[Rfam]
RNA sequence: GAAGGAUAUGAUGAUUGAACUUUUUUUGUUCCCUAUUGGUUUGAUAGCCGAUAUGAUGGCAUCUUACGUAUUAGCUCUAUCUGAUCCUUC
Numbered sequence: 001g002a003a004g005g006a007u008a009u010g011a012u013g014a015u016u017g018a019a020c021u022u023u024u025u026u027u028g029u030u031c032c033c034u035a036u037u038g039g040u041u042u043g044a045u046a047g048c049c050g051a052u053a054u055g056a057u058g059g060c061a062u063c064u065u066a067c068g069u070a071u072u073a074g075c076u077c078u079a080u081c082u083g084a085u086c087c088u089u090c
Base pairs, nucleotide, nucleotide: 002089003088004087005086043063047060048059049058